[Rfam]
RNA sequence: UCUGGCAAUGAUGACACACUUGCCCUCACUGAGAAUAUUUUUCAGUUAUGAGAACUUUACUUGUACUCAAAAUAACCUGAGCCAGA
Numbered sequence: 001u002c003u004g005g006c007a008a009u010g011a012u013g014a015c016a017c018a019c020u021u022g023c024c025c026u027c028a029c030u031g032a033g034a035a036u037a038u039u040u041u042u043c044a045g046u047u048a049u050g051a052g053a054a055c056u057u058u059a060c061u062u063g064u065a066c067u068c069a070a071a072a073u074a075a076c077c078u079g080a081g082c083c084a085g086a
Stems, first nucleotide, its partner, number of pairs: 001086006
This 86-nucleotide RNA sequence from Scyliorhinus torazame belongs to the Rfam family "Small nucleolar RNA SNORD103/SNORD85". The pairing is the family consensus, mapped onto this sequence. A search with the family's covariance model found it, with a score of 76 bits. By type it is a C/D-box small nucleolar RNA. A reference for the family is Huttenhofer et al. (2001), "RNomics: an experimental approach that identifies 201 candidates for novel, small, non-messenger RNAs in mouse", EMBO J. Lineage of the source: Eukaryota > Opisthokonta > Chordata > Galeomorphii > Scyliorhinus. Gene Ontology terms of the family: RNA processing and nucleolus. Rfam 15.1 lists 1,349 matches to the family in 595 species.